[Rfam]
RNA: small nucleolar RNA snoR143
RNA sequence: UUGCACCUUCCAAUAACGAAAGUUUCACCUGCUUGUUAUGGUGGUGUGACUUUUAUUGUUGGUGCGGAAAGGAAAAGCUGUCUUUGACAGCAGCGGCCAGACAACCGUAGGGAUGGAUCCACAGGUGAAUGGGUUGAAUUCCAUUUGUCUACUGAUUCCAUCUCACAUUA
Number, nucleotide and partner (000 for none) at each position: 001u000002u066003g065004c064005a063006c062007c000008u000009u058010c000011c000012a000013a000014u000015a000016a056017c000018g054019a053020a052021a051022g050023u049024u048025u000026c046027a045028c044029c043030u000031g000032c000033u000034u000035g000036u000037u000038a000039u000040g000041g000042u000043g029044g028045u027046g026047u000048g024049a023050c022051u021052u020053u019054u018055a000056u016057u000058g009059u000060u000061g000062g006063u005064g004065c003066g002067g000068a000069a000070a000071g000072g000073a000074a000075a000076a000077g000078c000079u000080g000081u000082c000083u000084u000085u000086g000087a000088c000089a000090g000091c000092a000093g000094c000095g000096g000097c000098c000099a000100g000101a000102c000103a000104a000105c000106c000107g000108u000109a000110g164111g163112g162113a161114u160115g159116g158117a157118u000119c000120c000121a000122c000123a000124g000125g000126u000127g000128a146129a145130u143131g142132g141133g000134u000135u000136g000137a000138a000139u000140u000141c132142c131143a130144u000145u129146u128147g000148u000149c000150u000151a000152c000153u000154g000155a000156u000157u117158c116159c115160a114161u113162c112163u111164c110165a000166c000167a000168u000169u000170a000